[Rfam]
RNA sequence: CCGUUGAAUCAGCCAAUACUGGUUUAGCAGUUUCUCCUCUAUUUCUCCUUUGUAGACUUGGCGCAUACCGAAUCGGUGUGCGCAUUUUU
Numbered sequence: 001c002c003g004u005u006g007a008a009u010c011a012g013c014c015a016a017u018a019c020u021g022g023u024u025u026a027g028c029a030g031u032u033u034c035u036c037c038u039c040u041a042u043u044u045c046u047c048c049u050u051u052g053u054a055g056a057c058u059u060g061g062c063g064c065a066u067a068c069c070g071a072a073u074c075g076g077u078g079u080g081c082g083c084a085u086u087u088u089u
Stems, first nucleotide, its partner, number of pairs: 003028009038056005061083010
The record is an 89-nucleotide RNA sequence from Paralysiella testudinis, which matches "Neisseria metabolic switch regulator b (RcoF1/NgncR163)" in Rfam. The family's RNA type in Rfam is small RNA. Sibling sRNA described and independently named in three publications. NgncR163 is N. gonorrhoeae while the others are N. meningitidis RNAs. The literature on the family includes a 2017 paper in Microbiology by Bauer et al., "The sibling sRNAs NgncR_162 and NgncR_163 of Neisseria gonorrhoeae participate in the expression control of metabolic, transport and regulatory proteins". Taxonomically the source falls in Paralysiella (Bacteria, Pseudomonadota, Betaproteobacteria, Neisseriaceae). Pairs were carried over by alignment from the consensus structure, which was predicted with RNAfold.